[Rfam]
Rfam assigns this 66-nucleotide sequence to the family "S15-Flavobacteria ribosomal protein leader". The family's consensus secondary structure is taken from published work. The sequence is in the family's curated seed alignment. For this family Rfam cites "Discovery of 20 novel ribosomal leader candidates in bacteria and archaea" (Eckert and Weinberg, BMC Microbiol, 2020). The family is grouped with related families in Rfam's "Ribosomal Protein S15 Leader clan".
RNA sequence: UAUAUUUGCCGCCUGAAAGAAAGACUUUCGGAUUACAUAACAAUUAUUUACACAAAUAUUAGCAUG
Numbered sequence: 001u002a003u004a005u006u007u008g009c010c011g012c013c014u015g016a017a018a019g020a021a022a023g024a025c026u027u028u029c030g031g032a033u034u035a036c037a038u039a040a041c042a043a044u045u046a047u048u049u050a051c052a053c054a055a056a057u058a059u060u061a062g063c064a065u066g
Stems, first nucleotide, its partner, number of pairs: 014030006